[Rfam]
RNA sequence: UUUCCCUUUUGACUACCACAUUUUCUCCAAUAAUAGAUUUUGGUGGCUAUGCUUGUGGGAUAGAUUAAAGUUGCCAGGAUCGGCAAAGGGAGGGUUUUUCAGUGUCCUCCUCCUAUAUGAAAUGGCUGAACAGAAUACC
Numbered sequence: 001u002u003u004c005c006c007u008u009u010u011g012a013c014u015a016c017c018a019c020a021u022u023u024u025c026u027c028c029a030a031u032a033a034u035a036g037a038u039u040u041u042g043g044u045g046g047c048u049a050u051g052c053u054u055g056u057g058g059g060a061u062a063g064a065u066u067a068a069a070g071u072u073g074c075c076a077g078g079a080u081c082g083g084c085a086a087a088g089g090g091a092g093g094g095u096u097u098u099u100c101a102g103u104g105u106c107c108u109c110c111u112c113c114u115a116u117a118u119g120a121a122a123u124g125g126c127u128g129a130a131c132a133g134a135a136u137a138c139c
Base pairs, nucleotide, nucleotide: 004059005058006057016046017045018044019043073126074125075124076123091114092113093112094111
A member of the RNA family "Small nucleolar RNA SNORA29" from Heterocephalus glaber, 139 nucleotides long.
Its family is annotated with RNA processing and nucleolus in the Gene Ontology.
Rfam classes the family as an H/ACA-box small nucleolar RNA.
From the family's description: ACA29 is a member of the H/ACA class of snoRNA that guide the sites of modification of uridines to pseudouridines.
The literature on the family includes a 2001 paper in EMBO J by Huttenhofer et al., "RNomics: an experimental approach that identifies 201 candidates for novel, small, non-messenger RNAs in mouse".